RNA: Mason-Pfizer monkey virus packaging signal
Organism: Nannospalax galili
RNA sequence: UGGCGCCCAAUGUGGGGCUUGGAUACUGAGGCAGCAGUGAGGGAGACGACGUGAAAAGGAACGCGUUCAACAAUCGGAGCCGCCGCGGGAGCCUGCCUCGGCCGAAACCGAAAGUAAGUGGAAACGUCCGAUCAUGGGGAAAUAAUUGAGUCAGCAUGAGCUUUAUGUUAAGCAGUUAAAAGAGGCUUUAAAGACACAGUGAGUAAAGGUUAAAACUACAGAUUUGUUUCAUUUUUUUGAUUUUGUUAAAGAGACCUGCCCCU
Numbered sequence: 001u002g003g004c005g006c007c008c009a010a011u012g013u014g015g016g017g018c019u020u021g022g023a024u025a026c027u028g029a030g031g032c033a034g035c036a037g038u039g040a041g042g043g044a045g046a047c048g049a050c051g052u053g054a055a056a057a058g059g060a061a062c063g064c065g066u067u068c069a070a071c072a073a074u075c076g077g078a079g080c081c082g083c084c085g086c087g088g089g090a091g092c093c094u095g096c097c098u099c100g101g102c103c104g105a106a107a108c109c110g111a112a113a114g115u116a117a118g119u120g121g122a123a124a125c126g127u128c129c130g131a132u133c134a135u136g137g138g139g140a141a142a143u144a145a146u147u148g149a150g151u152c153a154g155c156a157u158g159a160g161c162u163u164u165a166u167g168u169u170a171a172g173c174a175g176u177u178a179a180a181a182g183a184g185g186c187u188u189u190a191a192a193g194a195c196a197c198a199g200u201g202a203g204u205a206a207a208g209g210u211u212a213a214a215a216c217u218a219c220a221g222a223u224u225u226g227u228u229u230c231a232u233u234u235u236u237u238u239g240a241u242u243u244u245g246u247u248a249a250a251g252a253g254a255c256c257u258g259c260c261c262c263u
Stems, first nucleotide, its partner, number of pairs: 006031002012026003037047002070115002074111002081104002084100002087097002125139001127138004147190003150186003197239003201235003207225005248263001251260001